The record is a 71-nucleotide RNA from Grus americana, which matches "mir-124 microRNA precursor family" in Rfam. The organism belongs to Grus, within Eukaryota. For this family Rfam cites "Computational identification of Drosophila microRNA genes" (Lai et al., Genome Biol, 2003).
RNA sequence: AGCGUUUGGUGUUCACUGCGGACCUUGAUUUAAUGGCCCACAAUUAAGGCACGUGGUGAACGCCAAAGGGG
Numbered sequence: 001a002g003c004g005u006u007u008g009g010u011g012u013u014c015a016c017u018g019c020g021g022a023c024c025u026u027g028a029u030u031u032a033a034u035g036g037c038c039c040a041c042a043a044u045u046a047a048g049g050c051a052c053g054u055g056g057u058g059a060a061c062g063c064c065a066a067a068g069g070g071g
Stems, first nucleotide, its partner, number of pairs: 003069001005067002009063008018054003023049008
Dot-bracket structure: ..(.((..((((((((.(((..((((((((...........))))))))..))).))))))))..)).)..